[Rfam]
Fluoride riboswitch aptamer (crcB RNA motif): a 60-nucleotide RNA sequence from Rhodopila globiformis.
NCBI's taxonomy places the organism under Bacteria, Pseudomonadati, Alphaproteobacteria, Acetobacterales, Rhodopila.
A search with the family's covariance model found it, with a score of 45 bits.

RNA sequence: CAUGCGCCCGGGGAUGGAGUCCCCCGUUGACCGCCGCCGGCUGAUGACUCCUGCAUGGCC
Numbered sequence: 001c002a003u004g005c006g007c008c009c010g011g012g013g014a015u016g017g018a019g020u021c022c023c024c025c026g027u028u029g030a031c032c033g034c035c036g037c038c039g040g041c042u043g044a045u046g047a048c049u050c051c052u053g054c055a056u057g058g059c060c
Base pairs, nucleotide, nucleotide: 010025011024012023013022016051017050018049019048020047021046033041034040035039